[Rfam]
RNA sequence: GAUCAAUUCGUAAAGCGGUUUAGCUGCGGGGCGAAUGGUUUUAACCACAGUUUUGAUUCGGGAUACCCGAUGAAAGGUGAGCA
Number, nucleotide and partner (000 for none) at each position: 001g000002a000003u000004c081005a000006a000007u035008u034009c033010g032011u031012a000013a000014a000015g000016c026017g025018g024019u023020u000021u000022a000023g019024c018025u017026g016027c000028g000029g000030g000031g011032c010033g009034a008035a007036u000037g046038g045039u044040u000041u000042u000043a000044a039045c038046c037047a000048c000049a000050g078051u077052u076053u000054u000055g000056a000057u000058u070059c069060g068061g067062g066063a000064u000065a000066c062067c061068c060069g059070a058071u000072g000073a000074a000075a000076g052077g051078u050079g000080a000081g004082c000083a000
SucA RNA motif: an 83-nucleotide RNA from Polynucleobacter antarcticus. The source organism's lineage runs through Bacteria, Pseudomonadati, Pseudomonadota, Burkholderiales and Polynucleobacter. A search with the family's covariance model found it, with a score of 50 bits. Rfam links the family to the GO term regulation of translation.